[Rfam]
RNA: A. fumigatus sRNA Afu_309
Organism: Xylona heveae
RNA sequence: UCUUUCAUAUCAACCACAGAUCUGUGUUCAGCGAUCCUGGCGCUCUCUCUCACGAGAGAUGUCUGCUGGUCGUAUUGCUGAACAUUUCGACCCCCAAUGGAGCCAUCUCGUCCGUUUAGGACAUUUUUCAUGAUGUCAAUCUUCCGGUCGACAGAUCUCAGAACAACCAGUCCCUGAGCCUGAGCUCCCUCCGGGUGAGCUCGGCCUGGGGGUCACUGGGGACGCCAUAUUCCACUUCCCUUUACUGACUGGCCGUUGGCUUGUGAAGUCAGGGAUAAACCAUGGCAUGCCUAUAUAC
Numbered sequence: 001u002c003u004u005u006c007a008u009a010u011c012a013a014c015c016a017c018a019g020a021u022c023u024g025u026g027u028u029c030a031g032c033g034a035u036c037c038u039g040g041c042g043c044u045c046u047c048u049c050u051c052a053c054g055a056g057a058g059a060u061g062u063c064u065g066c067u068g069g070u071c072g073u074a075u076u077g078c079u080g081a082a083c084a085u086u087u088c089g090a091c092c093c094c095c096a097a098u099g100g101a102g103c104c105a106u107c108u109c110g111u112c113c114g115u116u117u118a119g120g121a122c123a124u125u126u127u128u129c130a131u132g133a134u135g136u137c138a139a140u141c142u143u144c145c146g147g148u149c150g151a152c153a154g155a156u157c158u159c160a161g162a163a164c165a166a167c168c169a170g171u172c173c174c175u176g177a178g179c180c181u182g183a184g185c186u187c188c189c190u191c192c193g194g195g196u197g198a199g200c201u202c203g204g205c206c207u208g209g210g211g212g213u214c215a216c217u218g219g220g221g222a223c224g225c226c227a228u229a230u231u232c233c234a235c236u237u238c239c240c241u242u243u244a245c246u247g248a249c250u251g252g253c254c255g256u257u258g259g260c261u262u263g264u265g266a267a268g269u270c271a272g273g274g275a276u277a278a279a280c281c282a283u284g285g286c287a288u289g290c291c292u293a294u295a296u297a298c
Stems, first nucleotide, its partner, number of pairs: 018158008026083006033076003036072001037069005042063001047058004091150001094147002098138003102134001104132003170216002178205003182202006188195002221291001223289001224286005237275005244269003251261004
Dot-bracket structure: .................((((((((((((((.((((((((((....((((....))))....).)))))..).))).)))))).......(..((..(((.(.(((.......................))).).))).......))..)))))))))...........((......(((.((((((((....)).))))))))).........))....(.((((((........(((((..(((....((((...)))).....))).)))))......)))))..).).......